[Rfam]
RNA sequence: GAUCAGAGAGUGUGCGCAGGCCCUUACCUGCGUGGACGACGUGGUGACUUGAUGUACUUCCCCAAUAUCAAGCCCGCACCCACGCAGGUGAGGCCCUGUCCGCACUCUCUUUGCUUUUCU
Numbered sequence: 001g002a003u004c005a006g007a008g009a010g011u012g013u014g015c016g017c018a019g020g021c022c023c024u025u026a027c028c029u030g031c032g033u034g035g036a037c038g039a040c041g042u043g044g045u046g047a048c049u050u051g052a053u054g055u056a057c058u059u060c061c062c063c064a065a066u067a068u069c070a071a072g073c074c075c076g077c078a079c080c081c082a083c084g085c086a087g088g089u090g091a092g093g094c095c096c097u098g099u100c101c102g103c104a105c106u107c108u109c110u111u112u113g114c115u116u117u118u119c120u
Stems, first nucleotide, its partner, number of pairs: 010107001012105005019096002022093014041077004048072008
Dot-bracket structure: .........(.(((((..((.((((((((((((((.....((((...((((((((.........)))))))).))))..)))))))))))))).))....))))).).............

A member of the RNA family "mraW RNA" from Corynebacterium falsenii, 120 nucleotides long. Lineage of the source: Bacteria > Bacillati > Actinomycetes > Mycobacteriales > Corynebacterium. The family's RNA type in Rfam is cis-regulatory element.